[Rfam]
RNA sequence: AAAAGUAUGUGUAACUGGCGUAGACGUGGAGUACCACGAGGGAGCACAUAUGGUUCAGCCGUACGCCUGGGCAGAGGUA
Numbered sequence: 001a002a003a004a005g006u007a008u009g010u011g012u013a014a015c016u017g018g019c020g021u022a023g024a025c026g027u028g029g030a031g032u033a034c035c036a037c038g039a040g041g042g043a044g045c046a047c048a049u050a051u052g053g054u055u056c057a058g059c060c061g062u063a064c065g066c067c068u069g070g071g072c073a074g075a076g077g078u079a
Base pairs, nucleotide, nucleotide: 005051006050007049008048009047010046011045012044015041016040017067018066019065020064021063026037027036028035029034056074058072059071060070
Record summary: This 79-nucleotide RNA sequence from Paenibacillus sp. UNCCL117 belongs to the Rfam family "ZMP/ZTP riboswitch aptamer (pfl RNA motif)". The literature on the family includes a 2015 paper in Nat Struct Mol Biol by Jones and Ferre-D'Amare, "Recognition of the bacterial alarmone ZMP through long-distance association of two RNA subdomains". The base pairs follow the family's consensus structure, which is taken from published work.